The family of this 86-nucleotide sequence from Gammaproteobacteria bacterium ESL0073 is "t44 RNA". On this family, see Tjaden et al., Nucleic Acids Res 2002: "Transcriptome analysis of Escherichia coli using high-density oligonucleotide probe arrays". The base pairs follow the family's consensus structure, which was predicted with LocARNA.
RNA sequence: CGGCUAUUUUUUAAAACCCGCACAUAUAUCGACACAGUAUUCUGGGUGCCUAUUUGGUUGAAUGCUGGGAUAUAUGGAGGCUUAAC
Dot-bracket structure: ......................((((((((....((((((((.....(((.....))).)))))))).))))))))..........
Lineage of the source: Bacteria > Pseudomonadati > Pseudomonadota > Gammaproteobacteria.
It is annotated as a small RNA.